[Rfam]
Acido-Lenti-1 RNA: a 47-nucleotide sequence from a Pirellulaceae bacterium. Pairs were carried over by alignment from the consensus structure, which is taken from published work. The source organism's lineage runs through Bacteria, Pseudomonadati, Planctomycetota, Planctomycetia and Pirellulaceae.
RNA sequence: CCGGGGGCUAACGCCGCCCGGCUACAUGAUGCCGCCGCUUCGCGGCU
Numbered sequence: 001c002c003g004g005g006g007g008c009u010a011a012c013g014c015c016g017c018c019c020g021g022c023u024a025c026a027u028g029a030u031g032c033c034g035c036c037g038c039u040u041c042g043c044g045g046c047u
Stems, first nucleotide, its partner, number of pairs: 001021005006015003034046005